[Rfam]
A member of the RNA family "Small nucleolar RNA SNORD58" from Phoenicopterus ruber, 70 nucleotides long.
A reference for the family is Kiss-Laszlo et al. (1996), "Site-specific ribose methylation of preribosomal RNA: a novel function for small nucleolar RNAs", Cell.
Lineage of the source: Eukaryota > Deuterostomia > Dipnotetrapodomorpha > Phoenicopteriformes > Phoenicopterus ruber.
Rfam links the family to the GO terms nucleolus and RNA processing.
Rfam classes the family as a C/D-box small nucleolar RNA.
From the family's description: snoRNA U58 is found in introns 1, 3 and 6 of the ribosomal protein RPL17 gene in humans.

RNA sequence: UGGCAGUGAUGACUAUCUUAGGACACCUUUGGAAUAACCAUGAAAAAAUAAUACCUUCCUUCUGAGCCAU
Numbered sequence: 001u002g003g004c005a006g007u008g009a010u011g012a013c014u015a016u017c018u019u020a021g022g023a024c025a026c027c028u029u030u031g032g033a034a035u036a037a038c039c040a041u042g043a044a045a046a047a048a049u050a051a052u053a054c055c056u057u058c059c060u061u062c063u064g065a066g067c068c069a070u
Stems, first nucleotide, its partner, number of pairs: 001069004